Description: A member of the RNA family "ALIL pseudoknot" from Octadecabacter arcticus, 117 nucleotides long. A reference for the family is Mazauric et al. (2008), "Apical loop-internal loop RNA pseudoknots: a new type of stimulator of -1 translational frameshifting in bacteria", J Biol Chem. The base pairs follow the family's consensus structure, which is taken from published work. Taxonomically the source falls in Octadecabacter arcticus (Bacteria, Pseudomonadota, Alphaproteobacteria, Octadecabacter). The family's RNA type in Rfam is cis-regulatory element. Gene Ontology term of the family: positive regulation of translational frameshifting.
RNA sequence: AGCUUUUUUCGCGGCGGCGGACCUCGACCGCCUAUGGAAGAGAUGAUCAUGUUCAUAGACGACCAUCGUGAGCAUCUUGGCGUCGAGGCGAUUUGCAAGGUUUUGCCGAUCGCGCCA
Numbered sequence: 001a002g003c004u005u006u007u008u009u010c011g012c013g014g015c016g017g018c019g020g021a022c023c024u025c026g027a028c029c030g031c032c033u034a035u036g037g038a039a040g041a042g043a044u045g046a047u048c049a050u051g052u053u054c055a056u057a058g059a060c061g062a063c064c065a066u067c068g069u070g071a072g073c074a075u076c077u078u079g080g081c082g083u084c085g086a087g088g089c090g091a092u093u094u095g096c097a098a099g100g101u102u103u104u105g106c107c108g109a110u111c112g113c114g115c116c117a
Stems, first nucleotide, its partner, number of pairs: 016032005078117005089112002092109002095106004